[Rfam]
RNA sequence: CGCCAAGGUCCGGCGUUUGAGGGUUAUCUGAUAUAGUGGGGUGGCUUCGGCUGCUCCGCCCGUCACUUCGGUGACACCCCGGGGGCAACCCCAACCCUUCCCUCAGACAUCAACUUGACCUGGU
Number, nucleotide and partner (000 for none) at each position: 001c000002g124003c123004c122005a000006a000007g120008g119009u118010c117011c000012g111013g110014c000015g108016u107017u106018u105019g104020a103021g102022g101023g100024u000025u000026a000027u000028c000029u000030g000031a000032u000033a000034u000035a000036g000037u000038g000039g056040g055041g054042u053043g052044g051045c050046u000047u000048c000049g000050g045051c044052u043053g042054c041055u040056c039057c000058g000059c000060c000061c073062g072063u071064c070065a000066c000067u000068u000069c000070g064071g063072u062073g061074a000075c000076a000077c000078c000079c000080c000081g092082g091083g090084g089085g000086c000087a000088a000089c084090c083091c082092c081093a000094a000095c000096c000097c000098u000099u000100c023101c022102c021103u020104c019105a018106g017107a016108c015109a000110u013111c012112a000113a000114c000115u000116u000117g010118a009119c008120c007121u000122g004123g003124u002
RNA: Nematode sRNA ceN72-3_ceN74-2